[Rfam]
RNA sequence: GUGCCCUUUUAAGGCUGACCCAGUGCCUUAAGAGGCUAACACAGAAGGGUAGAGUAAGUCUUCAUAAAAAUCCAGAGAAGAGAUUGUAAAACUCCUUGAUUCUGUCUUGAGUCACAGCU
Numbered sequence: 001g002u003g004c005c006c007u008u009u010u011a012a013g014g015c016u017g018a019c020c021c022a023g024u025g026c027c028u029u030a031a032g033a034g035g036c037u038a039a040c041a042c043a044g045a046a047g048g049g050u051a052g053a054g055u056a057a058g059u060c061u062u063c064a065u066a067a068a069a070a071u072c073c074a075g076a077g078a079a080g081a082g083a084u085u086g087u088a089a090a091a092c093u094c095c096u097u098g099a100u101u102c103u104g105u106c107u108u109g110a111g112u113c114a115c116a117g118c119u
Stems, first nucleotide, its partner, number of pairs: 002051009014040001016038002019035001021032001058113001060111003064107001072098001078096001080094003084091002
Rfam assigns this 119-nucleotide RNA sequence from Hipposideros armiger to the family "Small nucleolar RNA SNORA26".
Clan: SNORA27 clan.
About the family: The snoRNA HBI-6 belong to the H/ACA family of snoRNAs, guiding the pseudouridylation of position U4522 if the 28S rRNA. HBI-6 is the human orthologue of mouse MBI-6 snoRNA.